[Rfam]
RNA sequence: AAAAAGGGUCGGUUGGCUAAAUAUGCCACGCUCACCCUAGCUGGUGAGUGCUGUAUGGCUAUCAAGACAUAUGGCUGACAUAAUUUGUGGAAAUUCCCAGGGUUGGCUCGCUUAGCCGACCCUCCUC
Numbered sequence: 001a002a003a004a005a006g007g008g009u010c011g012g013u014u015g016g017c018u019a020a021a022u023a024u025g026c027c028a029c030g031c032u033c034a035c036c037c038u039a040g041c042u043g044g045u046g047a048g049u050g051c052u053g054u055a056u057g058g059c060u061a062u063c064a065a066g067a068c069a070u071a072u073g074g075c076u077g078a079c080a081u082a083a084u085u086u087g088u089g090g091a092a093a094u095u096c097c098c099a100g101g102g103u104u105g106g107c108u109c110g111c112u113u114a115g116c117c118g119a120c121c122c123u124c125c126u127c
Stems, first nucleotide, its partner, number of pairs: 008079005014028004029050008051074007099123010

The record is a 127-nucleotide sequence from Rhodamnia argentea, which matches "U11 spliceosomal RNA" in Rfam. Rfam classes the family as a spliceosomal small nuclear RNA. The source organism's lineage runs through Eukaryota, Mesangiospermae, Gunneridae, rosids and Rhodamnia. The family's consensus secondary structure is taken from published work. The family is grouped with related families in Rfam's "U1 clan".